Shown here is a 141-nucleotide RNA from Galemys pyrenaicus, a member of the family "Small nucleolar RNA SNORA43". It is annotated as an H/ACA-box small nucleolar RNA. It scores 105 bits against the family's covariance model. Rfam links the family to the GO terms nucleolus and RNA processing. Rfam 15.1 lists 492 matches to the family in 142 species. Rfam's curators write: ACA43 is a member of the H/ACA class of snoRNA that guide the sites of modification of uridines to pseudouridines. Its Rfam clan is "SNORA17 clan".

RNA sequence: UGCGCCCUGCGGACCUGGGGCCUGGGGCACACAGACCAGCAUCUCUGCUGUGCCUGCCACGCGGGGCGAAGAGAAAGUGGCUAUUUCUACACUCAGUGCUUAGAACAGUGAGCACUAAGAAUGGCUUGUAGCCUGACAUUG
Numbered sequence: 001u002g003c004g005c006c007c008u009g010c011g012g013a014c015c016u017g018g019g020g021c022c023u024g025g026g027g028c029a030c031a032c033a034g035a036c037c038a039g040c041a042u043c044u045c046u047g048c049u050g051u052g053c054c055u056g057c058c059a060c061g062c063g064g065g066g067c068g069a070a071g072a073g074a075a076a077g078u079g080g081c082u083a084u085u086u087c088u089a090c091a092c093u094c095a096g097u098g099c100u101u102a103g104a105a106c107a108g109u110g111a112g113c114a115c116u117a118a119g120a121a122u123g124g125c126u127u128g129u130a131g132c133c134u135g136a137c138a139u140u141g
Base pairs, nucleotide, nucleotide: 003068004067005066006065007064008063009062010061032056033055034054079133080132081131087124088123089122092119093118097114098113099112100111101110102109